[Rfam]
RNA sequence: UGAGUCGGCCGGGCGGCCGCGGCGUCCCUCGCGGGGCGUCGAGGAAAGUCCGGACUCCACAGAGCGACGGUGGUGGCUAACGGCCACCCACGGCGACGUGCGGGACAGUGCCACAGAAAUCAGACCGCCAGCGGCCCGUGCUCCUCGGAGCACGGGUGCGGGUAAGGGUGAAACGGUGAGGUAAGAGCUCACCAGCGUCCCGGGUGACCGGGACGGCUAGGUAAACCCCACCGGGAGCAAGACCAAGAGGGCCGCAUGCCGCUUCGGCGGUGCGCGGCCUGCGCUGACGGGCUGCUCGUCCGAUGUCAGCGGGUAGGUUGCACGAGGCGCCCAGCAAUGGGCGUCCCAGAUGGAUGGUCGCCCACGACAGGAUCCGGCUUACAGGCCGACUCAUUCG
Numbered sequence: 001u002g003a004g005u006c007g008g009c010c011g012g013g014c015g016g017c018c019g020c021g022g023c024g025u026c027c028c029u030c031g032c033g034g035g036g037c038g039u040c041g042a043g044g045a046a047a048g049u050c051c052g053g054a055c056u057c058c059a060c061a062g063a064g065c066g067a068c069g070g071u072g073g074u075g076g077c078u079a080a081c082g083g084c085c086a087c088c089c090a091c092g093g094c095g096a097c098g099u100g101c102g103g104g105a106c107a108g109u110g111c112c113a114c115a116g117a118a119a120u121c122a123g124a125c126c127g128c129c130a131g132c133g134g135c136c137c138g139u140g141c142u143c144c145u146c147g148g149a150g151c152a153c154g155g156g157u158g159c160g161g162g163u164a165a166g167g168g169u170g171a172a173a174c175g176g177u178g179a180g181g182u183a184a185g186a187g188c189u190c191a192c193c194a195g196c197g198u199c200c201c202g203g204g205u206g207a208c209c210g211g212g213a214c215g216g217c218u219a220g221g222u223a224a225a226c227c228c229c230a231c232c233g234g235g236a237g238c239a240a241g242a243c244c245a246a247g248a249g250g251g252c253c254g255c256a257u258g259c260c261g262c263u264u265c266g267g268c269g270g271u272g273c274g275c276g277g278c279c280u281g282c283g284c285u286g287a288c289g290g291g292c293u294g295c296u297c298g299u300c301c302g303a304u305g306u307c308a309g310c311g312g313g314u315a316g317g318u319u320g321c322a323c324g325a326g327g328c329g330c331c332c333a334g335c336a337a338u339g340g341g342c343g344u345c346c347c348a349g350a351u352g353g354a355u356g357g358u359c360g361c362c363c364a365c366g367a368c369a370g371g372a373u374c375c376g377g378c379u380u381a382c383a384g385g386c387c388g389a390c391u392c393a394u395u396c397g
Stems, first nucleotide, its partner, number of pairs: 001393010011382001012362007020041009046380003050377005055237004064296001068233005073087005088102001089100004103228002108226002110222003125167002127163003131159003135155001175193006195217001196215008241319004251310002254307001288302005326345008

The family of this 397-nucleotide RNA sequence from Aeromicrobium sp. Root472D3 is "Bacterial RNase P class A". The family's RNA type in Rfam is ribozyme. Taxonomically the source falls in Aeromicrobium (Bacteria, Bacillati, Actinomycetes, Nocardioidaceae).